[Rfam]
The record is a 75-nucleotide sequence from Caenorhabditis bovis, which matches "lin-4 microRNA precursor family" in Rfam.

RNA sequence: UCGAGGCCUGUUCCCUGAGACCUCAAGUGUGAUCUGAAGCGGAUCACCCUUGGGCUCUCUGGGCCACAGGCUAAU
Numbered sequence: 001u002c003g004a005g006g007c008c009u010g011u012u013c014c015c016u017g018a019g020a021c022c023u024c025a026a027g028u029g030u031g032a033u034c035u036g037a038a039g040c041g042g043a044u045c046a047c048c049c050u051u052g053g054g055c056u057c058u059c060u061g062g063g064c065c066a067c068a069g070g071c072u073a074a075u
Stems, first nucleotide, its partner, number of pairs: 013063003017059004022054004027049001029047007
Taxonomically the source falls in Caenorhabditis (Eukaryota, Metazoa, Bilateria, Ecdysozoa). A search with the family's covariance model found it, with a score of 52 bits.